[Rfam]
RNA: dfrA-dnaX RNA
RNA sequence: AUGCCUUGUGAUAAAACAAUAUUAAUUUCAUCGUAAUUACCGUAAAAAAGUAGUUAUAAAGGAACUGUGGUAUAAU
Numbered sequence: 001a002u003g004c005c006u007u008g009u010g011a012u013a014a015a016a017c018a019a020u021a022u023u024a025a026u027u028u029c030a031u032c033g034u035a036a037u038u039a040c041c042g043u044a045a046a047a048a049a050g051u052a053g054u055u056a057u058a059a060a061g062g063a064a065c066u067g068u069g070g071u072a073u074a075a076u
Stems, first nucleotide, its partner, number of pairs: 030071006037064001